[Rfam]
RNA sequence: UGAGUCCAGCAGGGGUUUCUUUCGGCCUUCAGCUGUCUUGAAGUCUGUAGGCCGGCGGAAACUACUUGCUGAAUUCA
Numbered sequence: 001u002g003a004g005u006c007c008a009g010c011a012g013g014g015g016u017u018u019c020u021u022u023c024g025g026c027c028u029u030c031a032g033c034u035g036u037c038u039u040g041a042a043g044u045c046u047g048u049a050g051g052c053c054g055g056c057g058g059a060a061a062c063u064a065c066u067u068g069c070u071g072a073a074u075u076c077a
Base pairs, nucleotide, nucleotide: 005073007071008070010068011067012066013065014063015062016061017060018059019058020057022055023054024053025052026051027050028049030047031046032045
mir-2796 microRNA precursor family: a 77-nucleotide sequence from Parnassius apollo.
The base pairs follow the family's consensus structure, which was predicted with RNAalifold.
Taxonomically the source falls in Parnassius (Eukaryota, Eumetazoa, Heteroneura, Parnassini).
Its family is annotated with RISC complex and miRNA-mediated post-transcriptional gene silencing in the Gene Ontology.